[Rfam]
RNA sequence: AUGCGAAGGUCCCAGCAGAGAGGGGUAAAUCUCUCUCUAACACAAAUACUAAUUCCUUCGCACAGUUAUAUGCCGAAUCGUAGGAUGCCCAAAAAGCUUUUGUUUUGGACCAUUCUGAACCAUCGGCUACAUUCAA
Numbered sequence: 001a002u003g004c005g006a007a008g009g010u011c012c013c014a015g016c017a018g019a020g021a022g023g024g025g026u027a028a029a030u031c032u033c034u035c036u037c038u039a040a041c042a043c044a045a046a047u048a049c050u051a052a053u054u055c056c057u058u059c060g061c062a063c064a065g066u067u068a069u070a071u072g073c074c075g076a077a078u079c080g081u082a083g084g085a086u087g088c089c090c091a092a093a094a095a096g097c098u099u100u101u102g103u104u105u106u107g108g109a110c111c112a113u114u115c116u117g118a119a120c121c122a123u124c125g126g127c128u129a130c131a132u133u134c135a136a
Base pairs, nucleotide, nucleotide: 003061004060005059006058007057008056009055011020013018023037024036025035072127073126074125075124076123084114085113087111089108090107091106092105093104094103
Rfam assigns this 136-nucleotide sequence from Quercus lobata to the family "Small nucleolar RNA snoR145". The source organism's lineage runs through Eukaryota, Streptophyta, Pentapetalae, fabids and Quercus.